[Rfam]
RNA sequence: UUUGUCGCUGUAAACAUCCCCGACUGGAAGCUGUGAGGCUGCAUUUGAGCUUUCAGUCUGGUGUUUGCUGCUACCGG
Numbered sequence: 001u002u003u004g005u006c007g008c009u010g011u012a013a014a015c016a017u018c019c020c021c022g023a024c025u026g027g028a029a030g031c032u033g034u035g036a037g038g039c040u041g042c043a044u045u046u047g048a049g050c051u052u053u054c055a056g057u058c059u060g061g062u063g064u065u066u067g068c069u070g071c072u073a074c075c076g077g
Base pairs, nucleotide, nucleotide: 002076004074005073008070010068011067012066013065014064015063016062017061018060023057024056025055026054027053028052029051030050031049032048
The record is a 77-nucleotide RNA from Xenopus tropicalis, which matches "mir-30 microRNA precursor family" in Rfam. Rfam links the family to the GO terms RISC complex and gene silencing by miRNA. Rfam's curators put it in the seed alignment. The family's consensus secondary structure was predicted with PFOLD. The source organism's lineage runs through Eukaryota, Bilateria, Gnathostomata, Euteleostomi and Silurana. The literature on the family includes a 2001 paper in Cell by Ambros, "microRNAs: tiny regulators with great potential".